[Rfam]
RNA sequence: GAUCGGUAACCAGCACGGGCGUAGAGGCAACUCCACGCCCGUGUACGUAUGUCAGGCGACUUAAUUCUG
Numbered sequence: 001g002a003u004c005g006g007u008a009a010c011c012a013g014c015a016c017g018g019g020c021g022u023a024g025a026g027g028c029a030a031c032u033c034c035a036c037g038c039c040c041g042u043g044u045a046c047g048u049a050u051g052u053c054a055g056g057c058g059a060c061u062u063a064a065u066u067c068u069g
Stems, first nucleotide, its partner, number of pairs: 013044009024033003
Rfam assigns this 69-nucleotide sequence from Mangrovibacter sp. MFB070 to the family "tpke11". It scores 49 bits against the family's covariance model. The family's consensus secondary structure was predicted with WAR. About the family: In Yersinia located in ICR upstream dnaJ (chaperone)gene. Has temperature responsive RNA structure.